[Rfam]
BsrG: a 272-nucleotide sequence from Lentibacillus populi. Gene Ontology terms of the family: autolysis and toxin activity. It scores 68 bits against the family's covariance model. The literature on the family includes a 2008 paper in Gene by Saito et al., "Novel small RNA-encoding genes in the intergenic regions of Bacillus subtilis". The base pairs follow the family's consensus structure, which was predicted with WAR.
RNA sequence: CAAUAAUCGUGUUUUCCUCAAGGGAGGUCGGCGCAUUCUCGUCGGUUGUAGUGUCACACGAUACGCUAUGACGGAAGGGGGUGUUGCCCUUGUCUGUUUUUGAGACAUUGGUUUUAAUGAUCGCAUUUGCAACACUUGUUUUGGCGACUAUUGACCAUAAAAAAUAGACCUCCCUAGGAUUAGCAGCCAGUGGGGUCCAUUCCUUACAUGCGCUGACCCCUCUUGAAUGGGGAGCGAUUCAUUGCUGACCGGAGAUAUUGCCGUAUCUUCGG
Numbered sequence: 001c002a003a004u005a006a007u008c009g010u011g012u013u014u015u016c017c018u019c020a021a022g023g024g025a026g027g028u029c030g031g032c033g034c035a036u037u038c039u040c041g042u043c044g045g046u047u048g049u050a051g052u053g054u055c056a057c058a059c060g061a062u063a064c065g066c067u068a069u070g071a072c073g074g075a076a077g078g079g080g081g082u083g084u085u086g087c088c089c090u091u092g093u094c095u096g097u098u099u100u101u102g103a104g105a106c107a108u109u110g111g112u113u114u115u116a117a118u119g120a121u122c123g124c125a126u127u128u129g130c131a132a133c134a135c136u137u138g139u140u141u142u143g144g145c146g147a148c149u150a151u152u153g154a155c156c157a158u159a160a161a162a163a164a165u166a167g168a169c170c171u172c173c174c175u176a177g178g179a180u181u182a183g184c185a186g187c188c189a190g191u192g193g194g195g196u197c198c199a200u201u202c203c204u205u206a207c208a209u210g211c212g213c214u215g216a217c218c219c220c221u222c223u224u225g226a227a228u229g230g231g232g233a234g235c236g237a238u239u240c241a242u243u244g245c246u247g248a249c250c251g252g253a254g255a256u257a258u259u260g261c262c263g264u265a266u267c268u269u270c271g272g
Stems, first nucleotide, its partner, number of pairs: 001244004005239003009235001015216002018178002021175004026169001028167001033084003037081004092155003096151002106119002130146001189204002217232004249272010